[Rfam]
RNA: mir-3473 microRNA precursor family
Organism: Nannospalax galili
RNA sequence: ACCGCUGAGCCAUCUCUCCAGCCCCAACUACAUUUUUAAAAAUAUUUUUAUUGAAUAUUUAAGAAUUUCAUAAAAUUGGGGCUGGAGAGAUGGCUCAGCGGU
Number, nucleotide and partner (000 for none) at each position: 001a000002c101003c100004g099005c098006u097007g096008a095009g094010c093011c092012a091013u090014c089015u088016c087017u086018c085019c084020a083021g082022c081023c080024c079025c078026a077027a076028c000029u000030a000031c000032a000033u000034u000035u000036u000037u000038a000039a000040a000041a000042a000043u000044a000045u000046u000047u000048u000049u000050a000051u000052u000053g000054a000055a000056u000057a000058u000059u000060u000061a000062a000063g000064a000065a000066u000067u000068u000069c000070a000071u000072a000073a000074a000075a000076u027077u026078g025079g024080g023081g022082c021083u020084g019085g018086a017087g016088a015089g014090a013091u012092g011093g010094c009095u008096c007097a006098g005099c004100g003101g002102u000